RNA sequence: GCGAAUGUAGCUCAGUUGGUAGAGCACACGGUUGUGGCCCGUGUGGCCGCGGGUUCAAGUCCCGUCAUUCGCC
Number, nucleotide and partner (000 for none) at each position: 001g072002c071003g070004a069005a068006u067007g066008u000009a000010g025011c024012u023013c022014a000015g000016u000017u000018g000019g000020u000021a000022g013023a012024g011025c010026a000027c043028a042029c041030g040031g039032u000033u000034g000035u000036g000037g000038c000039c031040c030041g029042u028043g027044u000045g000046g000047c000048c000049g065050c064051g063052g062053g061054u000055u000056c000057a000058a000059g000060u000061c053062c052063c051064g050065u049066c007067a006068u005069u004070c003071g002072c001073c000